[Rfam]
Nucleotides: 066
Stems, first nucleotide, its partner, number of pairs: 011042005018031004046065005052059002
Number, partner (000 for none) and nucleotide at each position: 001000g002000a003000a004000a005000c006000g007000u008000g009000a010000a011042c012041c013040a014039a015038g016000c017000a018031g019030c020029c021028a022000a023000a024000a025000c026000a027000a028021u029020g030019g031018c032000a033000u034000g035000a036000g037000a038015c039014u040013u041012g042011g043000a044000g045000c046065u047064g048063g049062c050061c051000c052059c053058g054000g055000c056000a057000a058053c059052g060000a061050g062049g063048c064047c065046a066000u
Rfam assigns this 66-nucleotide RNA sequence from Bifidobacterium italicum to the family "Transposase-2 RNA". It is annotated as a small RNA. The family's consensus secondary structure is taken from published work. NCBI's taxonomy places the organism under Bacteria, Bacillati, Actinomycetota, Bifidobacteriaceae, Bifidobacterium.